Makes More Granules Regulator RNA (mmgR): a 79-nucleotide RNA from Sphingomonas sp. Leaf20. A reference for the family is Ceizel Borella et al. (2016), "Expression of the Sinorhizobium meliloti small RNA gene mmgR is controlled by the nitrogen source", FEMS Microbiol Lett. NCBI's taxonomy places the organism under Bacteria, Pseudomonadati, Pseudomonadota, Sphingomonadales, Sphingomonas. The base pairs follow the family's consensus structure. The match comes from Rfam's covariance-model search (55 bits). Rfam 15.1 lists 1,791 matches to the family in 918 species. From the family's description: SuhB later renamed mmgR (makes more granules regulator) was a putative non-coding RNA found multiple times in the Agrobacterium tumefaciens genome and related alpha-proteobacteria. Other non-coding RNAs uncovered in the same analysis include: speF, ybhL, metA, and serC.Several studies inSinorhizobium meliloti showed that suhB element is indeed a non-coding RNA:firstly it was detected on Northern blot and called Sm8RNA, secondly in an RNAseq study referred to as SmelC689.The mutant phenotype's (strain lacking the small RNA) cytoplasm contains higher content of polyhydroxybutyrate (PBH)storage granules than wild type strain. The sRNA is required to limit the PBH intracellular accumulation when the nitrogen-fixing Sinorhizobium meliloti is under condition of surplus carbon in relation to nitrogen. It has been renamed to mmgR. Further study confirmed that mmgR fine-tunes the regulation of PBH storage.Northern blot confirmed the expression of the sRNA in other rhizobia species. MmgR homologues were found in most alpha-proteobacteria. The family's RNA type in Rfam is small RNA. Its Rfam clan is "suhB sRNA clan".
RNA sequence: AGACCUCGCCUUUCAGGCAUCCUCUCCUAAAAACUUUCACGGGCUGGCCUUCAUUGGCCAGCCCUUUUUUUUGUCGCGU
Numbered sequence: 001a002g003a004c005c006u007c008g009c010c011u012u013u014c015a016g017g018c019a020u021c022c023u024c025u026c027c028u029a030a031a032a033a034c035u036u037u038c039a040c041g042g043g044c045u046g047g048c049c050u051u052c053a054u055u056g057g058c059c060a061g062c063c064c065u066u067u068u069u070u071u072u073g074u075c076g077c078g079u
Stems, first nucleotide, its partner, number of pairs: 008018004041064009